[Rfam]
RNA sequence: UGUCAAGAGUCGUGGCGCCAUUUCGGCGAGCAGGUUUCUUUUGCCUUCGUGAAAGGUGAGGGAAAUG
Numbered sequence: 001u002g003u004c005a006a007g008a009g010u011c012g013u014g015g016c017g018c019c020a021u022u023u024c025g026g027c028g029a030g031c032a033g034g035u036u037u038c039u040u041u042u043g044c045c046u047u048c049g050u051g052a053a054a055g056g057u058g059a060g061g062g063a064a065a066u067g
Base pairs, nucleotide, nucleotide: 010063011062013059016058017057018056019055021054022053023052024051025050026048028046030044031043032042033041034040